[Rfam]
Nucleotides: 035
Base pairs, nucleotide, nucleotide: 001035002034003033004032006031007030008029010028012027013026014025015024016023017021
Number, partner (000 for none) and nucleotide at each position: 001035c002034u003033g004032u005000c006031u007030c008029u009000u010028g011000c012027u013026c014025c015024a016023a017021u018000a019000g020000u021017g022000u023016u024015u025014g026013g027012a028010c029008a030007g031006g032004a033003c034002a035001g

Rfam assigns this 35-nucleotide RNA from Myotis lucifugus to the family "Iron response element I". The base pairs follow the family's consensus structure, which is taken from published work. A reference for the family is Hentze et al. (1987), "Identification of the iron-responsive element for the translational regulation of human ferritin mRNA", Science. By type it is a cis-regulatory element. Rfam links the family to the GO term response to iron ion. NCBI's taxonomy places the organism under Eukaryota, Euteleostomi, Mammalia, Yangochiroptera, Myotis.